Shown here is a 104-nucleotide RNA from Vulpes vulpes, a member of the family "mir-8834 microRNA precursor family".
[Rfam]
RNA sequence: AGGAGGAACAACCACAGGGUGGCAGCAGCUCUGGAAACCUGGAUUCAGCCCUCGCAGUAACUCCGGGGCUCUCCGUCUGCAGGGCCUGGACGCUCUGUCCUGAG
Numbered sequence: 001a002g003g004a005g006g007a008a009c010a011a012c013c014a015c016a017g018g019g020u021g022g023c024a025g026c027a028g029c030u031c032u033g034g035a036a037a038c039c040u041g042g043a044u045u046c047a048g049c050c051c052u053c054g055c056a057g058u059a060a061c062u063c064c065g066g067g068g069c070u071c072u073c074c075g076u077c078u079g080c081a082g083g084g085c086c087u088g089g090a091c092g093c094u095c096u097g098u099c100c101u102g103a104g
Base pairs, nucleotide, nucleotide: 002096003095004094005093009088010087012084013083018077019076020075021074022073027070028069029068030067031066032065033064034063035062039057040056041055